[Rfam]
RNA sequence: CGCAUGGUAUCUGGCAAAAGAUCAGAUGGCGAUGCGGCCUAACACAAGGU
Numbered sequence: 001c002g003c004a005u006g007g008u009a010u011c012u013g014g015c016a017a018a019a020g021a022u023c024a025g026a027u028g029g030c031g032a033u034g035c036g037g038c039c040u041a042a043c044a045c046a047a048g049g050u
Stems, first nucleotide, its partner, number of pairs: 001036005007030002011025004015020001
Dot-bracket structure: (((((.((..(((((....).))))...)).)))))..............
Background
The record is a 50-nucleotide sequence from Thalassotalea sp. ND16A, which matches "L31-Gammaproteobacteria ribosomal protein leader" in Rfam. NCBI's taxonomy places the organism under Bacteria, Gammaproteobacteria, Alteromonadales, Colwelliaceae, Thalassotalea. It is one of the family's seed sequences. The family is grouped with related families in Rfam's "Ribosomal Protein L31 Leader clan". Rfam classes the family as a cis-regulatory leader.